RNA: Small nucleolar RNA SNORD103/SNORD85
Organism: Orthonyx spaldingii
RNA sequence: UCUGGCAGUGAUGCCACACUUGCCCUCACUGAGAACUCUGUUCGAUAAUGAGCCUCUCCUGUGCUGGAAGCUGAGCCAGA
Numbered sequence: 001u002c003u004g005g006c007a008g009u010g011a012u013g014c015c016a017c018a019c020u021u022g023c024c025c026u027c028a029c030u031g032a033g034a035a036c037u038c039u040g041u042u043c044g045a046u047a048a049u050g051a052g053c054c055u056c057u058c059c060u061g062u063g064c065u066g067g068a069a070g071c072u073g074a075g076c077c078a079g080a
Stems, first nucleotide, its partner, number of pairs: 001080006